[Rfam]
This 102-nucleotide RNA sequence from Methylorubrum extorquens belongs to the Rfam family "Glycine riboswitch aptamer".
The source organism's lineage runs through Bacteria, Alphaproteobacteria, Hyphomicrobiales, Methylorubrum and Methylorubrum extorquens.
RNA sequence: ACAGACGAUACGGGAGAGCCCAGGCUCAUCGAAAGAUGAAUCAUGGCGCCGACGGAGCAACCACCCCCGGAAACUCUCAGGCACAAUCACCGUAUCGUUGGA
Numbered sequence: 001a002c003a004g005a006c007g008a009u010a011c012g013g014g015a016g017a018g019c020c021c022a023g024g025c026u027c028a029u030c031g032a033a034a035g036a037u038g039a040a041u042c043a044u045g046g047c048g049c050c051g052a053c054g055g056a057g058c059a060a061c062c063a064c065c066c067c068c069g070g071a072a073a074c075u076c077u078c079a080g081g082c083a084c085a086a087u088c089a090c091c092g093u094a095u096c097g098u099u100g101g102a
Stems, first nucleotide, its partner, number of pairs: 006097008020046003048082003051078002055076003061070002